A member of the RNA family "t44 RNA" from Vibrio genomosp. F6, 114 nucleotides long. The family's consensus secondary structure was predicted with LocARNA. The source organism's lineage runs through Bacteria, Pseudomonadota, Gammaproteobacteria, Vibrionaceae and Vibrio genomosp. F6. A reference for the family is Tjaden et al. (2002), "Transcriptome analysis of Escherichia coli using high-density oligonucleotide probe arrays", Nucleic Acids Res. Rfam's curators write: This family consists of a number of bacterial RNA genes of between 135 and 170 bases in length. The t44 gene has been identified in several species of enteric bacteria but homologs have also been identified in Pseudomonas and Coxiella species. The t44 gene is found between the map and rpsB genes in all species in the full alignment apart from Shigella flexneri. The function of this RNA is unknown. It is annotated as a small RNA.
[Rfam]
RNA sequence: ACUAAAUUAUCUUUAAAUCACACACAUUUCGACACAUGUUCCGGGGUGCUUCAACUUCAUUAACUUAGGUUAGUAGGUUAGGGGUCGGAUGCAUGGGGAAUGUGGAGGCCUAAC
Numbered sequence: 001a002c003u004a005a006a007u008u009a010u011c012u013u014u015a016a017a018u019c020a021c022a023c024a025c026a027u028u029u030c031g032a033c034a035c036a037u038g039u040u041c042c043g044g045g046g047u048g049c050u051u052c053a054a055c056u057u058c059a060u061u062a063a064c065u066u067a068g069g070u071u072a073g074u075a076g077g078u079u080a081g082g083g084g085u086c087g088g089a090u091g092c093a094u095g096g097g098g099a100a101u102g103u104g105g106a107g108g109c110c111u112a113a114c
Stems, first nucleotide, its partner, number of pairs: 023104008035095005040089004048085005